[Rfam]
RNA sequence: AAAAUAAAUAUACUCCGAAUUCAUUCAUUCUAAAGAUAAAAAUCUAUGAAUAAUGAAUCUAUAGGGUAUUGUCGGAAACGAUAAUGCCUCCCACUGUGGAAAGGAGAAGUACAUAGUAAAUU
Numbered sequence: 001a002a003a004a005u006a007a008a009u010a011u012a013c014u015c016c017g018a019a020u021u022c023a024u025u026c027a028u029u030c031u032a033a034a035g036a037u038a039a040a041a042a043u044c045u046a047u048g049a050a051u052a053a054u055g056a057a058u059c060u061a062u063a064g065g066g067u068a069u070u071g072u073c074g075g076a077a078a079c080g081a082u083a084a085u086g087c088c089u090c091c092c093a094c095u096g097u098g099g100a101a102a103g104g105a106g107a108a109g110u111a112c113a114u115a116g117u118a119a120a121u122u
Stems, first nucleotide, its partner, number of pairs: 011108001013106004019058007027051004034045004064089011090099002
Molybdenum/Tungsten riboswitch aptamer (Moco RNA motif): a 122-nucleotide sequence from Alkalibaculum bacchi. Taxonomically the source falls in Alkalibaculum (Bacteria, Bacillati, Clostridia, Eubacteriales). The match comes from Rfam's covariance-model search (74 bits).